[Rfam]
A member of the RNA family "Small nucleolar RNA SNORD73" from Hucho hucho, 70 nucleotides long.
RNA sequence: AAUGCAUGAUGACAAAUUGUUUCGGCCCAAUGAUUGGCACUGAUUACUGGUAAAGAGAUCUGCUGGUGUU
Numbered sequence: 001a002a003u004g005c006a007u008g009a010u011g012a013c014a015a016a017u018u019g020u021u022u023c024g025g026c027c028c029a030a031u032g033a034u035u036g037g038c039a040c041u042g043a044u045u046a047c048u049g050g051u052a053a054a055g056a057g058a059u060c061u062g063c064u065g066g067u068g069u070u
Stems, first nucleotide, its partner, number of pairs: 001070004
The source organism's lineage runs through Eukaryota, Chordata, Euteleostomi, Salmoninae and Hucho.
The family's consensus secondary structure was predicted with PFOLD.
Gene Ontology terms of the family: nucleolus and RNA processing.
The literature on the family includes a 1998 paper in Gene by Rebane et al., "A novel snoRNA (U73) is encoded within the introns of the human and mouse ribosomal protein S3a genes".
It is annotated as a C/D-box small nucleolar RNA.